[Rfam]
RNA sequence: ACGAUGUUCCGCUGUAGUUUAUGCUAUCAUGAGCAUCUG
Numbered sequence: 001a002c003g004a005u006g007u008u009c010c011g012c013u014g015u016a017g018u019u020u021a022u023g024c025u026a027u028c029a030u031g032a033g034c035a036u037c038u039g
Stems, first nucleotide, its partner, number of pairs: 003037007013029002015026004
Source information
The record is a 39-nucleotide RNA from Halalkalibacter akibai, which matches "Ribosomal protein L19 leader" in Rfam. By type it is a cis-regulatory leader. Gene Ontology term of the family: regulation of gene expression. The source organism's lineage runs through Bacteria, Bacillati, Bacilli, Halalkalibacter and Halalkalibacter akibai.